[Rfam]
RNA sequence: AUCUUAUCAAGAGCAGGCGGAGGGAUGAGCCCUAUGAAGCCCGGCAACCGACUUUUUUAAGCACGGUGCUAAUUCUCACAGCAGUCAUGCUGAAAGAUAAGAA
Number, nucleotide and partner (000 for none) at each position: 001a000002u102003c101004u100005u099006a098007u097008c096009a000010a000011g000012a000013g042014c000015a000016g041017g040018c039019g000020g000021a000022g032023g031024g030025a000026u078027g077028a076029g075030c024031c023032c022033u000034a000035u000036g000037a000038a000039g018040c017041c016042c013043g070044g069045c068046a067047a000048c066049c065050g062051a000052c000053u059054u000055u000056u000057u000058u000059a053060a000061g000062c050063a000064c000065g049066g048067u046068g045069c044070u043071a000072a000073u000074u095075c029076u028077c027078a026079c092080a091081g090082c089083a088084g000085u000086c000087a000088u083089g082090c081091u080092g079093a000094a000095a074096g008097a007098u006099a005100a004101g003102a002103a000
RNA: SAM riboswitch aptamer (S box leader)
Organism: Bacillus sp. FJAT-27231